[Rfam]
RNA: Small nucleolar RNA SNORD30
RNA sequence: UGACAUGAUGAGUUUACCUUGGAAUCUCGUUCGGCUGAACAUUGCUGUUGAGACUUGGAAUCUGAGUCAG
Numbered sequence: 001u002g003a004c005a006u007g008a009u010g011a012g013u014u015u016a017c018c019u020u021g022g023a024a025u026c027u028c029g030u031u032c033g034g035c036u037g038a039a040c041a042u043u044g045c046u047g048u049u050g051a052g053a054c055u056u057g058g059a060a061u062c063u064g065a066g067u068c069a070g
Base pairs, nucleotide, nucleotide: 025053026052027051028050029049032047033046034045035044
Dot-bracket structure: ........................(((((..((((........)))).))))).................